[Rfam]
RNA: Glutamine riboswitch aptamer (glnA leader)
Organism: Leptolyngbya ectocarpi
RNA sequence: CUCGUUCAUCUCUGAAAAAUUGUCUUUUAUUUGGCGAUGAGACGGAAGUAGGGGGCCUUUACGAUGACUGUCGUUAGUUUGUAUGGGUCCACCCGAAGGAACGCACU
Numbered sequence: 001c002u003c004g005u006u007c008a009u010c011u012c013u014g015a016a017a018a019a020u021u022g023u024c025u026u027u028u029a030u031u032u033g034g035c036g037a038u039g040a041g042a043c044g045g046a047a048g049u050a051g052g053g054g055g056c057c058u059u060u061a062c063g064a065u066g067a068c069u070g071u072c073g074u075u076a077g078u079u080u081g082u083a084u085g086g087g088u089c090c091a092c093c094c095g096a097a098g099g100a101a102c103g104c105a106c107u
Base pairs, nucleotide, nucleotide: 003103004102005101006100007099009042010041011040012039045104051094052093053092